[Rfam]
RNA: tRNA
Organism: Nematocida displodere
RNA sequence: GGCAUCUUGGUCGAGCGGUCUAAGACGUGGCACUCAAGAUGCUAUCCUUUACAGGGCGUGGGUUCGAAUCCCACAGAUGUCA
Numbered sequence: 001g002g003c004a005u006c007u008u009g010g011u012c013g014a015g016c017g018g019u020c021u022a023a024g025a026c027g028u029g030g031c032a033c034u035c036a037a038g039a040u041g042c043u044a045u046c047c048u049u050u051a052c053a054g055g056g057c058g059u060g061g062g063u064u065c066g067a068a069u070c071c072c073a074c075a076g077a078u079g080u081c082a
Base pairs, nucleotide, nucleotide: 001081002080003079004078005077006076007075010026011025012024028044029043030042031041032040058074059073060072061071062070